[Rfam]
RNA: Bacterial large subunit ribosomal RNA, nucleotides 7 to 533
Organism: Desulfurispirillum indicum
RNA sequence: UUACUCAAGGGCAUACGGUGGAUGCCUUGGCACCAGGAGGCGAAGAAGGACGCGCUAACCUGCGAAAAGUUCCGGCGAGGUGGUACGAACCUUUGACCCGGAAAUAUCCGAAUGGGGCAACCCACUGGGAGUGAUGUCCCAGUAUUGCAUGGUGAAUUCAUAGCCAUGCAAGGCGAACGCGGGGAACUGAAACAUCUCAGUACCCGCAGGAAGAGAAAUCAACCGAGAUUCCGUCAGUAGCGGCGAGCGAACGCGGAGGAGCCUGUGUUGCGUAAUCGAAGCGCAUGCUAAGAGAACAAGUUGGGAAGCUUGGCCAUAGCGGGUAACAGCCCCGUAUCUGAAAGUAUGUGUGUAGAGGCAACCGCUAAGUAGGCCGGGGCACGUGAAACCCUGGUUGAAGAUGGGGGGACCACCCUCCAAGGCUAAAUACUCCCUGGUGACCGAUAGUGAAGCAGUACCGUGAGGGAAAGGUGAAAAGAACCCCGUUGAGGGGAGUGAAAUAGAACCUGAAACCGUAUGCCUACAAG
Numbered sequence: 001u002u003a004c005u006c007a008a009g010g011g012c013a014u015a016c017g018g019u020g021g022a023u024g025c026c027u028u029g030g031c032a033c034c035a036g037g038a039g040g041c042g043a044a045g046a047a048g049g050a051c052g053c054g055c056u057a058a059c060c061u062g063c064g065a066a067a068a069g070u071u072c073c074g075g076c077g078a079g080g081u082g083g084u085a086c087g088a089a090c091c092u093u094u095g096a097c098c099c100g101g102a103a104a105u106a107u108c109c110g111a112a113u114g115g116g117g118c119a120a121c122c123c124a125c126u127g128g129g130a131g132u133g134a135u136g137u138c139c140c141a142g143u144a145u146u147g148c149a150u151g152g153u154g155a156a157u158u159c160a161u162a163g164c165c166a167u168g169c170a171a172g173g174c175g176a177a178c179g180c181g182g183g184g185a186a187c188u189g190a191a192a193c194a195u196c197u198c199a200g201u202a203c204c205c206g207c208a209g210g211a212a213g214a215g216a217a218a219u220c221a222a223c224c225g226a227g228a229u230u231c232c233g234u235c236a237g238u239a240g241c242g243g244c245g246a247g248c249g250a251a252c253g254c255g256g257a258g259g260a261g262c263c264u265g266u267g268u269u270g271c272g273u274a275a276u277c278g279a280a281g282c283g284c285a286u287g288c289u290a291a292g293a294g295a296a297c298a299a300g301u302u303g304g305g306a307a308g309c310u311u312g313g314c315c316a317u318a319g320c321g322g323g324u325a326a327c328a329g330c331c332c333c334g335u336a337u338c339u340g341a342a343a344g345u346a347u348g349u350g351u352g353u354a355g356a357g358g359c360a361a362c363c364g365c366u367a368a369g370u371a372g373g374c375c376g377g378g379g380c381a382c383g384u385g386a387a388a389c390c391c392u393g394g395u396u397g398a399a400g401a402u403g404g405g406g407g408g409a410c411c412a413c414c415c416u417c418c419a420a421g422g423c424u425a426a427a428u429a430c431u432c433c434c435u436g437g438u439g440a441c442c443g444a445u446a447g448u449g450a451a452g453c454a455g456u457a458c459c460g461u462g463a464g465g466g467a468a469a470g471g472u473g474a475a476a477a478g479a480a481c482c483c484c485g486u487u488g489a490g491g492g493g494a495g496u497g498a499a500a501u502a503g504a505a506c507c508u509g510a511a512a513c514c515g516u517a518u519g520c521c522u523a524c525a526a527g
Stems, first nucleotide, its partner, number of pairs: 009522010024507001025471002029442002031439007038431002040174002048109003051064003070103006079091003114123003124143007145171009178209001179207005189196002219226002229427001230257005240248002260424004267362005277355001279353001281351009291339003297312005315319001321333003372396008403418005458465002481493004